RNA sequence: UGCCGCAAUUUUGCGGACUUAUGCAGAAUUGACCCACUGCGUAUUACAUAGAACGUAACUUAGGAGAAAACAAAUG
Numbered sequence: 001u002g003c004c005g006c007a008a009u010u011u012u013g014c015g016g017a018c019u020u021a022u023g024c025a026g027a028a029u030u031g032a033c034c035c036a037c038u039g040c041g042u043a044u045u046a047c048a049u050a051g052a053a054c055g056u057a058a059c060u061u062a063g064g065a066g067a068a069a070a071c072a073a074a075u076g
Stems, first nucleotide, its partner, number of pairs: 003016004020043007044058004
RNA: freshwater-2 RNA